Nucleotides: 147
Stems, first nucleotide, its partner, number of pairs: 004023005032052003036049004054070005083147005090142007100130006107123005
Number, partner (000 for none) and nucleotide at each position: 001000g002000u003000g004023c005022c006021u007020u008019a009000a010000a011000c012000u013000a014000a015000u016000g017000a018000g019008u020007a021006a022005g023004g024000a025000a026000a027000a028000u029000a030000a031000c032052g033051a034050g035000c036049u037048c038047c039046a040000g041000u042000g043000a044000u045000g046039u047038g048037g049036a050034c051033u052032c053000a054070c055069u056068c057067c058066u059000c060000g061000u062000u063000g064000u065000u066058a067057g068056g069055a070054g071000u072000c073000a074000a075000u076000u077000u078000u079000u080000g081000a082000a083147a084146g085145g086144g087143u088000a089000u090142a091141g092140g093139u094138c095137u096136c097000g098000c099000u100130c101129a102128u103127g104126u105125g106000g107123c108122u109121c110120g111119u112000c113000u114000a115000c116000u117000u118000u119111g120110c121109g122108g123107g124000u125105c126104g127103c128102a129101u130100g131000u132000u133000g134000u135000c136096g137095g138094g139093g140092c141091u142090u143087g144086c145085c146084c147083u
Source information:
A member of the RNA family "U12 minor spliceosomal RNA" from Dinothrombium tinctorium, 147 nucleotides long. Lineage of the source: Eukaryota > Metazoa > Arthropoda > Chelicerata > Dinothrombium. The family has 62 seed sequences and 2,106 matches in Rfam 15.1.